[Rfam]
RNA sequence: UGUUGAGUUGACGAACCCAACACGGGAGUGACUGAACAAACUUGCUGGCAUAAGGCUAGUUAAGGUGAUGAGACACAGGUGGUGCUGCACGUUGAAAACGUGAAUCGACUUACCAGUCGGGUCUCAGACAGUAAGGUAAAAAUCUACUAAUGUAGCAAUGCCCCUUACUUGUUGGUACACAUUAUUCCAACCUCCCACACC
Numbered sequence: 001u002g003u004u005g006a007g008u009u010g011a012c013g014a015a016c017c018c019a020a021c022a023c024g025g026g027a028g029u030g031a032c033u034g035a036a037c038a039a040a041c042u043u044g045c046u047g048g049c050a051u052a053a054g055g056c057u058a059g060u061u062a063a064g065g066u067g068a069u070g071a072g073a074c075a076c077a078g079g080u081g082g083u084g085c086u087g088c089a090c091g092u093u094g095a096a097a098a099c100g101u102g103a104a105u106c107g108a109c110u111u112a113c114c115a116g117u118c119g120g121g122u123c124u125c126a127g128a129c130a131g132u133a134a135g136g137u138a139a140a141a142a143u144c145u146a147c148u149a150a151u152g153u154a155g156c157a158a159u160g161c162c163c164c165u166u167a168c169u170u171g172u173u174g175g176u177a178c179a180c181a182u183u184a185u186u187c188c189a190a191c192c193u194c195c196c197a198c199a200c201c
Base pairs, nucleotide, nucleotide: 001022002021003020004019005018024196025195026194027193028192031066032065044060045059046058047057048056049055069126070125071124072123073122074121076087077086078085080115081114082113083112088102089101090100091099092098093097105120106119107118108117109116130169131168132167133166134165135164136163144155145154146153147152150182151181171191172190173189174188175187
The family of this 201-nucleotide sequence is "manA RNA".
The family's consensus secondary structure is taken from published work.
manA RNA has been located in 5'UTR regions of genes of mannose or fructose metabolism. Has been proposed as a cis-regulatory element and as a riboswitch candidate for his complex secondary structure.
It is annotated as a cis-regulatory element.